[Rfam]
RNA: Bacillaceae-1 RNA
RNA sequence: ACAGUAAGAUCAAAGACUAAAAACGCCACAUCUGUGGCAACGUCUUUAUGACCCACUUCCUGUGGG
Numbered sequence: 001a002c003a004g005u006a007a008g009a010u011c012a013a014a015g016a017c018u019a020a021a022a023a024c025g026c027c028a029c030a031u032c033u034g035u036g037g038c039a040a041c042g043u044c045u046u047u048a049u050g051a052c053c054c055a056c057u058u059c060c061u062g063u064g065g066g
Stems, first nucleotide, its partner, number of pairs: 012047006025038005052066005